[Rfam]
RNA sequence: AGGCAGCCCCCUUGCAAAAAGAUGGCAAGGGAGGUGUUAAUCUGCUCGGAAAUUAAUCGAUCUUUUGCUUUUCAAAUUUACUGAGAUGGGUUUACCCCUUCCCUAAAGUUGGUCUAGCAUGCAUAUAAGCACAUC
Numbered sequence: 001a002g003g004c005a006g007c008c009c010c011c012u013u014g015c016a017a018a019a020a021g022a023u024g025g026c027a028a029g030g031g032a033g034g035u036g037u038u039a040a041u042c043u044g045c046u047c048g049g050a051a052a053u054u055a056a057u058c059g060a061u062c063u064u065u066u067g068c069u070u071u072u073c074a075a076a077u078u079u080a081c082u083g084a085g086a087u088g089g090g091u092u093u094a095c096c097c098c099u100u101c102c103c104u105a106a107a108g109u110u111g112g113u114c115u116a117g118c119a120u121g122c123a124u125a126u127a128a129g130c131a132c133a134u135c
Stems, first nucleotide, its partner, number of pairs: 002038004007034002009031007017023001062129003067122002074115001076113003080109003085101002